[Rfam]
The family of this 64-nucleotide sequence from Diabrotica virgifera is "mir-2 microRNA precursor family". A search with the family's covariance model found it, with a score of 56 bits. The family's consensus secondary structure was predicted with PFOLD.
RNA sequence: UCGCUCAUCAACUGGAUGUGAAAUGUUUUUACUUUCAUAUCACAGCCAGCUUUGAUGAGCGUAA
Numbered sequence: 001u002c003g004c005u006c007a008u009c010a011a012c013u014g015g016a017u018g019u020g021a022a023a024u025g026u027u028u029u030u031a032c033u034u035u036c037a038u039a040u041c042a043c044a045g046c047c048a049g050c051u052u053u054g055a056u057g058a059g060c061g062u063a064a
Stems, first nucleotide, its partner, number of pairs: 005058007013048003017044005024039003